[Rfam]
RNA sequence: GUACCGCAAGGAAGUUAUACCGCUGUGUUCCUUACCGGACAUCGAAGGAGAGCGACGGCAGAUGUACGGACGGUGC
Numbered sequence: 001g002u003a004c005c006g007c008a009a010g011g012a013a014g015u016u017a018u019a020c021c022g023c024u025g026u027g028u029u030c031c032u033u034a035c036c037g038g039a040c041a042u043c044g045a046a047g048g049a050g051a052g053c054g055a056c057g058g059c060a061g062a063u064g065u066a067c068g069g070a071c072g073g074u075g076c
Stems, first nucleotide, its partner, number of pairs: 001076006009032004036068002039065005